About this RNA
Rfam assigns this 85-nucleotide RNA sequence from Eubacterium sp. CAG:76 to the family "Streptococcus sRNA SpF59 (ldcC RNA)". Pairs were carried over by alignment from the consensus structure, which was predicted with mfold. For this family Rfam cites "Control of virulence by small RNAs in Streptococcus pneumoniae" (Mann et al., PLoS Pathog, 2012). It is annotated as a small RNA.
[Rfam]
RNA sequence: UGACCACUUGUAUCUUAGGUGUGCAGUAGUUAUACAGCAUAUCAGGAUAAAGUUAAGCCUAACGGACAGGCGGGUCGGUUGCCGG
Numbered sequence: 001u002g003a004c005c006a007c008u009u010g011u012a013u014c015u016u017a018g019g020u021g022u023g024c025a026g027u028a029g030u031u032a033u034a035c036a037g038c039a040u041a042u043c044a045g046g047a048u049a050a051a052g053u054u055a056a057g058c059c060u061a062a063c064g065g066a067c068a069g070g071c072g073g074g075u076c077g078g079u080u081g082c083c084g085g
Stems, first nucleotide, its partner, number of pairs: 001077005006053004